[Rfam]
RNA sequence: UAGAAUAAUGUAGAUAAGGGAAUUCGGCAAGUUAGAUCCGUAACUUCGGGAAAAGGAUUGGCUCUGAGGACUGGGCUAGGAGGACUUACCAUGAAUGGCUGCAAGCGUAAGGACCGCGCAAGCGGAUCUUGCGAAUAGCAAUCGGGAAUGGCAAGGAAGUCUCGAAAGGGAUGGGCUCCUGGUGAUUGACAGUUAACUCAGAACUGAAGCGGACUCGGGGAAUCCGACUGUUUAAUAAAAACAAAGCUUUGUGAUGGCCUGAAAAGGUGUUGACACAAAGUGAUUUCUGCCCAGUGCUCUGAAUGUCAAGUUGAAGUAAUUCAAUCAAGCGCGGGUAAACGGCGGGAGUAACUAUGACUCUCUUAAGGUAGCCAAAUGCCUCGUCAUCUAAUUAGUGACGCGCAUGAAUGGAUCAAUGAGAUUCCCACUGUCCCUAUCUACUAUCUAGCGAAACCACAGCCAAGGGAACGGGCUUGGAAGA
Numbered sequence: 001u002a003g004a005a006u007a008a009u010g011u012a013g014a015u016a017a018g019g020g021a022a023u024u025c026g027g028c029a030a031g032u033u034a035g036a037u038c039c040g041u042a043a044c045u046u047c048g049g050g051a052a053a054a055g056g057a058u059u060g061g062c063u064c065u066g067a068g069g070a071c072u073g074g075g076c077u078a079g080g081a082g083g084a085c086u087u088a089c090c091a092u093g094a095a096u097g098g099c100u101g102c103a104a105g106c107g108u109a110a111g112g113a114c115c116g117c118g119c120a121a122g123c124g125g126a127u128c129u130u131g132c133g134a135a136u137a138g139c140a141a142u143c144g145g146g147a148a149u150g151g152c153a154a155g156g157a158a159g160u161c162u163c164g165a166a167a168g169g170g171a172u173g174g175g176c177u178c179c180u181g182g183u184g185a186u187u188g189a190c191a192g193u194u195a196a197c198u199c200a201g202a203a204c205u206g207a208a209g210c211g212g213a214c215u216c217g218g219g220g221a222a223u224c225c226g227a228c229u230g231u232u233u234a235a236u237a238a239a240a241a242c243a244a245a246g247c248u249u250u251g252u253g254a255u256g257g258c259c260u261g262a263a264a265a266g267g268u269g270u271u272g273a274c275a276c277a278a279a280g281u282g283a284u285u286u287c288u289g290c291c292c293a294g295u296g297c298u299c300u301g302a303a304u305g306u307c308a309a310g311u312u313g314a315a316g317u318a319a320u321u322c323a324a325u326c327a328a329g330c331g332c333g334g335g336u337a338a339a340c341g342g343c344g345g346g347a348g349u350a351a352c353u354a355u356g357a358c359u360c361u362c363u364u365a366a367g368g369u370a371g372c373c374a375a376a377u378g379c380c381u382c383g384u385c386a387u388c389u390a391a392u393u394a395g396u397g398a399c400g401c402g403c404a405u406g407a408a409u410g411g412a413u414c415a416a417u418g419a420g421a422u423u424c425c426c427a428c429u430g431u432c433c434c435u436a437u438c439u440a441c442u443a444u445c446u447a448g449c450g451a452a453a454c455c456a457c458a459g460c461c462a463a464g465g466g467a468a469c470g471g472g473c474u475u476g477g478a479a480g481a
Base pairs, nucleotide, nucleotide: 001447002446003445004444010441011440012439013438014437015436016435018433019432020431035059036058037057038056039055044049060205061204063202064201065200066199067198068197069194070193071192072191073190075183076182077181078180079179080178081177082176085155086154089151090150091149098143100141101139102138103136106133107132108131109130110129111128112127114125115124116123117122206210218426219425220424221423222422223421224420225418226417229243230242231241246281247280248279249278250277251276252275253274257268258267259266260265285412286411287410289343290342291341294340295339296336297335298334299333301332304331305330306329311324312323313322314321315320344362345361346360347359348358349357363367383399384398385397386396387395460477461476462475463474464473